[Rfam]
RNA sequence: CGUGACUGUCUUUCUUGGACGUUUCCUCCCUAAACUCGGCGGUGCUUCUGGCACCGCCUUUUUUUUGCCCGCG
Numbered sequence: 001c002g003u004g005a006c007u008g009u010c011u012u013u014c015u016u017g018g019a020c021g022u023u024u025c026c027u028c029c030c031u032a033a034a035c036u037c038g039g040c041g042g043u044g045c046u047u048c049u050g051g052c053a054c055c056g057c058c059u060u061u062u063u064u065u066u067g068c069c070c071g072c073g
Stems, first nucleotide, its partner, number of pairs: 008020004038058008
A member of the RNA family "Makes More Granules Regulator RNA (mmgR)" from Teichococcus coralli, 73 nucleotides long. Pairs were carried over by alignment from the consensus structure. A search with the family's covariance model found it, with a score of 59 bits. The source organism's lineage runs through Bacteria, Pseudomonadati, Acetobacterales, Roseomonadaceae and Roseomonas. Rfam's curators write: SuhB later renamed mmgR (makes more granules regulator) was a putative non-coding RNA found multiple times in the Agrobacterium tumefaciens genome and related alpha-proteobacteria.